[Rfam]
RNA sequence: UUACCGCUUGCGGGAGAGUCCGGCCGGAAGGCCGGCGCCGAAGGAGCAACCGCCCCGGAAACUCUCAGGCACCCGGACCGCAAGGGGUCG
Numbered sequence: 001u002u003a004c005c006g007c008u009u010g011c012g013g014g015a016g017a018g019u020c021c022g023g024c025c026g027g028a029a030g031g032c033c034g035g036c037g038c039c040g041a042a043g044g045a046g047c048a049a050c051c052g053c054c055c056c057g058g059a060a061a062c063u064c065u066c067a068g069g070c071a072c073c074c075g076g077a078c079c080g081c082a083a084g085g086g087g088u089c090g
Base pairs, nucleotide, nucleotide: 007084008083009082010081011080012079013078020035021034022033023032037070038069039068040066041065044064045063046062050058051057
Glycine riboswitch aptamer: a 90-nucleotide RNA from Oceanibacterium hippocampi. It scores 71 bits against the family's covariance model. NCBI's taxonomy places the organism under Bacteria, Pseudomonadati, Pseudomonadota, Sneathiellales, Oceanibacterium.